[Rfam]
RNA sequence: GUGGGUUAUGGGGAUGUGUAUCCUCUAACGGUGGCUGGGAGGAUCGUUGCUACCCUCUGCAUUCUCUGCGGGUUACUUGUGGUUUCUCUCCCCAUAACCAUCAUCAUGAACAAU
Numbered sequence: 001g002u003g004g005g006u007u008a009u010g011g012g013g014a015u016g017u018g019u020a021u022c023c024u025c026u027a028a029c030g031g032u033g034g035c036u037g038g039g040a041g042g043a044u045c046g047u048u049g050c051u052a053c054c055c056u057c058u059g060c061a062u063u064c065u066c067u068g069c070g071g072g073u074u075a076c077u078u079g080u081g082g083u084u085u086c087u088c089u090c091c092c093c094a095u096a097a098c099c100a101u102c103a104u105c106a107u108g109a110a111c112a113a114u
Stems, first nucleotide, its partner, number of pairs: 001114002004111001007108005013102004019096003037077002040074001049063001051061001
Shown here is a 114-nucleotide RNA sequence from Danionella cerebrum, a member of the family "Potassium channel RNA editing signal".
The base pairs follow the family's consensus structure, which is taken from published work.